[Rfam]
RNA sequence: UUAAUAACAUGAGAAGGGAUGAUGGGUGGACGAUGAUUAACUAAUCUUAUUUUUAACGUUUGAAAUUGAUAUUUCAAAUCAUACAAAAUAGGAUUAGUCUGCCCAUUUUCUAUAUACGUAAGCGCUAUUUCUGAAGAAUAGCUUAUUUGAUCAUGGCAAAGGCACGGCUAAUCCUUCCAAAACAUUUGGGAGGAUUUUUUG
Numbered sequence: 001u002u003a004a005u006a007a008c009a010u011g012a013g014a015a016g017g018g019a020u021g022a023u024g025g026g027u028g029g030a031c032g033a034u035g036a037u038u039a040a041c042u043a044a045u046c047u048u049a050u051u052u053u054u055a056a057c058g059u060u061u062g063a064a065a066u067u068g069a070u071a072u073u074u075c076a077a078a079u080c081a082u083a084c085a086a087a088a089u090a091g092g093a094u095u096a097g098u099c100u101g102c103c104c105a106u107u108u109u110c111u112a113u114a115u116a117c118g119u120a121a122g123c124g125c126u127a128u129u130u131c132u133g134a135a136g137a138a139u140a141g142c143u144u145a146u147u148u149g150a151u152c153a154u155g156g157c158a159a160a161g162g163c164a165c166g167g168c169u170a171a172u173c174c175u176u177c178c179a180a181a182a183c184a185u186u187u188g189g190g191a192g193g194a195u196u197u198u199u200u201g
Base pairs, nucleotide, nucleotide: 016111017110018109019108023105024104025103026102029099030098031097042096043095044094045093046092047091048090049089050088051087052086053085058079059078060077061076062075063074064073065072066071117149118148124142125141126140127139128138129137130136170196171195172194173193174192175191176190177189178188179187180186
The family of this 201-nucleotide RNA sequence from Bacillus atrophaeus is "Bacillus sRNA ncr1575". Taxonomically the source falls in Bacillus atrophaeus (Bacteria, Bacillota, Caryophanales, Bacillus). A reference for the family is Irnov et al. (2010), "Identification of regulatory RNAs in Bacillus subtilis", Nucleic Acids Res.